[Rfam]
Shown here is a 47-nucleotide sequence from Stieleria varia, a member of the family "Acido-Lenti-1 RNA".
RNA sequence: CCUGGGGCUUUCGCCCCAGGCUGUAUGCUGCCGUCGCAUUCGCGACU
Numbered sequence: 001c002c003u004g005g006g007g008c009u010u011u012c013g014c015c016c017c018a019g020g021c022u023g024u025a026u027g028c029u030g031c032c033g034u035c036g037c038a039u040u041c042g043c044g045a046c047u
Stems, first nucleotide, its partner, number of pairs: 001020008033046005
Overview: The organism belongs to Stieleria, within Bacteria. It is annotated as a small RNA. A search with the family's covariance model found it, with a score of 40 bits.